[Rfam]
RNA sequence: CUGCAUAUUUUUUAUACAGCUCGAUAAAAAGUUGCUCGAAAAAGAUUCAACGCCUAGAAUUUUUUUUGCUUCUUGCGCUACGUCAGUUUACUUACUACAAGUAAUGGGUAGUAUGUACGCCGGCCAUUUCAUCACUCGGAUGAG
Numbered sequence: 001c002u003g004c005a006u007a008u009u010u011u012u013u014a015u016a017c018a019g020c021u022c023g024a025u026a027a028a029a030a031g032u033u034g035c036u037c038g039a040a041a042a043a044g045a046u047u048c049a050a051c052g053c054c055u056a057g058a059a060u061u062u063u064u065u066u067u068g069c070u071u072c073u074u075g076c077g078c079u080a081c082g083u084c085a086g087u088u089u090a091c092u093u094a095c096u097a098c099a100a101g102u103a104a105u106g107g108g109u110a111g112u113a114u115g116u117a118c119g120c121c122g123g124c125c126a127u128u129u130c131a132u133c134a135c136u137c138g139g140a141u142g143a144g
Stems, first nucleotide, its partner, number of pairs: 038078001042074004049070001051068002082124003086120002089117003093113006100105001128144006